[Rfam]
RNA sequence: AGAUGCCAGGGUCAAAAGGUCUAAAUCCACAUGAGCUUGCUCAUAAGUGGAUGAAAGACCUUGGGACCCGCCCCGAUAUGGAGCAGAACAUCCAGUGGAUGUUCGUUUUGCUCCGACCGAAGCGGAGCGUAGACAUAAAAAUGGGAUGAUAAUCCCACGAUAUGCGAAUACGGGAGCGGAUUGUGGGAGUGCGAAGCAUGGAACAAUCCGCAGGUAUCA
Numbered sequence: 001a002g003a004u005g006c007c008a009g010g011g012u013c014a015a016a017a018g019g020u021c022u023a024a025a026u027c028c029a030c031a032u033g034a035g036c037u038u039g040c041u042c043a044u045a046a047g048u049g050g051a052u053g054a055a056a057g058a059c060c061u062u063g064g065g066a067c068c069c070g071c072c073c074c075g076a077u078a079u080g081g082a083g084c085a086g087a088a089c090a091u092c093c094a095g096u097g098g099a100u101g102u103u104c105g106u107u108u109u110g111c112u113c114c115g116a117c118c119g120a121a122g123c124g125g126a127g128c129g130u131a132g133a134c135a136u137a138a139a140a141a142u143g144g145g146a147u148g149a150u151a152a153u154c155c156c157a158c159g160a161u162a163u164g165c166g167a168a169u170a171c172g173g174g175a176g177c178g179g180a181u182u183g184u185g186g187g188a189g190u191g192c193g194a195a196g197c198a199u200g201g202a203a204c205a206a207u208c209c210g211c212a213g214g215u216a217u218c219a
Base pairs, nucleotide, nucleotide: 002218003217004216005215006214007213010068011067012066013065016062017061018060019059020058021057022056026051027050028049029048030047031044032043033042034041035040073174074173077170078169079168083165084164085163095158096157097156178209179208180207181206182205183204184203189199190198191197192196

Clostridiales-1 RNA: a 219-nucleotide sequence from Ruminococcus difficilis. Rfam 15.1 lists 1,172 matches to the family in 137 species. A search with the family's covariance model found it, with a score of 96 bits. Taxonomically the source falls in Ruminococcus (Bacteria, Bacillota, Eubacteriales, Oscillospiraceae). It is annotated as a small RNA.